[Rfam]
The record is a 54-nucleotide RNA sequence from Coregonus sp. 'balchen', which matches "UnaL2 LINE 3' element" in Rfam.
RNA sequence: UAGCUGCUGCCUUGUAAGUCGCUCUGGAUAAGAGCAUCUGCUAAAUGAAUCAAA
Numbered sequence: 001u002a003g004c005u006g007c008u009g010c011c012u013u014g015u016a017a018g019u020c021g022c023u024c025u026g027g028a029u030a031a032g033a034g035c036a037u038c039u040g041c042u043a044a045a046u047g048a049a050u051c052a053a054a
Base pairs, nucleotide, nucleotide: 013043014041015040016039021035022034023033024032025031

The family's RNA type in Rfam is cis-regulatory element. The base pairs follow the family's consensus structure, which is taken from published work. Its family is annotated with transposition, RNA-mediated in the Gene Ontology.